[Rfam]
RNA sequence: UGAAUACGCCCAUCAAGGGAGUUGUGCCCCAACCAGGGGCGACUUUACCGUAUUCAGAAUUC
Numbered sequence: 001u002g003a004a005u006a007c008g009c010c011c012a013u014c015a016a017g018g019g020a021g022u023u024g025u026g027c028c029c030c031a032a033c034c035a036g037g038g039g040c041g042a043c044u045u046u047a048c049c050g051u052a053u054u055c056a057g058a059a060u061u062c
Stems, first nucleotide, its partner, number of pairs: 018046008027037002